Annotation:
Rfam assigns this 96-nucleotide RNA from Drosophila busckii to the family "Small nucleolar RNA Me28S-Gm1083". The literature on the family includes a 2005 paper in RNA by Huang et al., "Genome-wide analyses of two families of snoRNA genes from Drosophila melanogaster, demonstrating the extensive utilization of introns for coding of snoRNAs". Its family is annotated with RNA processing and nucleolus in the Gene Ontology.

RNA sequence: UGUCUGCUGAUGAGCAAUAACUUUCGCCCCUAGCUGAAAACUAAGUGAAACUUCUCAUGUUGAAUGCGAGAUUGGUCUUACUGACAAAGACAGUUG
Numbered sequence: 001u002g003u004c005u006g007c008u009g010a011u012g013a014g015c016a017a018u019a020a021c022u023u024u025c026g027c028c029c030c031u032a033g034c035u036g037a038a039a040a041c042u043a044a045g046u047g048a049a050a051c052u053u054c055u056c057a058u059g060u061u062g063a064a065u066g067c068g069a070g071a072u073u074g075g076u077c078u079u080a081c082u083g084a085c086a087a088a089g090a091c092a093g094u095u096g
Base pairs, nucleotide, nucleotide: 001093002091003090004089